[Rfam]
RNA sequence: CUCAGGGAAGCGCUUUGUCCACGUGGACACAAAGCGCGCCCUCAAGGAAGCGUUUUCUGUCCACGUGGACAAAGCGCUUCCUUGAGG
Dot-bracket structure: (((((((((((((((((((((.(((((((.(((((((..((....))..))))))).))))))).))))))))))))))))))))).
Numbered sequence: 001c002u003c004a005g006g007g008a009a010g011c012g013c014u015u016u017g018u019c020c021a022c023g024u025g026g027a028c029a030c031a032a033a034g035c036g037c038g039c040c041c042u043c044a045a046g047g048a049a050g051c052g053u054u055u056u057c058u059g060u061c062c063a064c065g066u067g068g069a070c071a072a073a074g075c076g077c078u079u080c081c082u083u084g085a086g087g
Stems, first nucleotide, its partner, number of pairs: 001086021023064007031056007040047002